[Rfam]
RNA sequence: GUGCAACGUCCCGAGGGCGCUUCGCGUGCCCGGCAACCUGGUUUCGCCUCCAAGGUGCCAAGUACGACGUGGUGCGAUGAGCCGCAAGGCUUUCGCGCAACAAAAGGCGGGCAC
Numbered sequence: 001g002u003g004c005a006a007c008g009u010c011c012c013g014a015g016g017g018c019g020c021u022u023c024g025c026g027u028g029c030c031c032g033g034c035a036a037c038c039u040g041g042u043u044u045c046g047c048c049u050c051c052a053a054g055g056u057g058c059c060a061a062g063u064a065c066g067a068c069g070u071g072g073u074g075c076g077a078u079g080a081g082c083c084g085c086a087a088g089g090c091u092u093u094c095g096c097g098c099a100a101c102a103a104a105a106g107g108c109g110g111g112c113a114c
Stems, first nucleotide, its partner, number of pairs: 006070005015031006032059003037055003040051002044110005072098006
Shown here is a 114-nucleotide sequence from bacterium SCGC AG-212-C10, a member of the family "SAM-I/IV (S-adenosyl methionine) riboswitch aptamer". Rfam links the family to the GO terms S-adenosylmethionine metabolic process and regulation of gene expression. On this family, see Weinberg et al., RNA 2008: "The aptamer core of SAM-IV riboswitches mimics the ligand-binding site of SAM-I riboswitches".